This 109-nucleotide RNA from Silvimonas terrae belongs to the Rfam family "Glycine riboswitch aptamer".
[Rfam]
RNA sequence: CAAUGCCGGGCAGGAGAGACCACUGUGGAGCUUGUUCACAAGCUGCCGGACGUGGCGCCGAAGGGGUAUCGCCCUGAAAACUCUCAGGCAAAAGAACUGCACGGCAAUC
Number, nucleotide and partner (000 for none) at each position: 001c000002a000003a000004u000005g000006c104007c103008g102009g000010g100011c099012a098013g097014g000015a000016g000017a000018g000019a000020c055021c054022a053023c052024u000025g000026u000027g000028g000029a000030g000031c000032u000033u000034g000035u000036u000037c000038a000039c000040a000041a000042g000043c000044u000045g000046c000047c000048g000049g000050a000051c000052g023053u022054g021055g020056c000057g089058c088059c087060g085061a084062a000063g000064g083065g082066g081067u000068a000069u000070c076071g075072c000073c000074c000075u071076g070077a000078a000079a000080a000081c066082u065083c064084u061085c060086a000087g059088g058089c057090a000091a000092a000093a000094g000095a000096a000097c013098u012099g011100c010101a000102c008103g007104g006105c000106a000107a000108u000109c000

A search with the family's covariance model found it, with a score of 57 bits. The pairing is the family consensus, mapped onto this sequence.